The record is a 104-nucleotide RNA from Mycolicibacterium holsaticum, which matches "mraW RNA" in Rfam. Rfam 15.1 lists 851 matches to the family in 821 species. It scores 74 bits against the family's covariance model. The family's consensus secondary structure is taken from published work.
[Rfam]
RNA sequence: UCCAGCCCGUGCAUCGCGGCCUCUGCCCGAACCGGCCCUGGCGUACUUCCCCAACGCCAGGUCCGUGCUCUCGGACAGGGACCCCGGUGCAGCGGGCACUCUGC
Numbered sequence: 001u002c003c004a005g006c007c008c009g010u011g012c013a014u015c016g017c018g019g020c021c022u023c024u025g026c027c028c029g030a031a032c033c034g035g036c037c038c039u040g041g042c043g044u045a046c047u048u049c050c051c052c053a054a055c056g057c058c059a060g061g062u063c064c065g066u067g068c069u070c071u072c073g074g075a076c077a078g079g080g081a082c083c084c085c086g087g088u089g090c091a092g093c094g095g096g097c098a099c100u101c102u103g104c
Base pairs, nucleotide, nucleotide: 010091011090012089013088014087015086016085018083019082021080022079023078024077025076027074028073029072030071032067033065034064035063037061038060039059040058041057042056043055044054